[Rfam]
RNA: Guanidine-I riboswitch aptamer
RNA sequence: GCGCAGGACGCCUAGGGUUCCGGCCGCGCUUUCCCCCGGCGGGAGACGCGGCGCUGGUCCGAGAGGCGUCGUCCCGUGAGCCGCAGCCCAUGGGAUACACGGCGGGAGAAAAGCCCGGGAGGC
Numbered sequence: 001g002c003g004c005a006g007g008a009c010g011c012c013u014a015g016g017g018u019u020c021c022g023g024c025c026g027c028g029c030u031u032u033c034c035c036c037c038g039g040c041g042g043g044a045g046a047c048g049c050g051g052c053g054c055u056g057g058u059c060c061g062a063g064a065g066g067c068g069u070c071g072u073c074c075c076g077u078g079a080g081c082c083g084c085a086g087c088c089c090a091u092g093g094g095a096u097a098c099a100c101g102g103c104g105g106g107a108g109a110a111a112a113g114c115c116c117g118g119g120a121g122g123c
Stems, first nucleotide, its partner, number of pairs: 007070006015060002020057002022054001023052006071096008098118001100121001104116003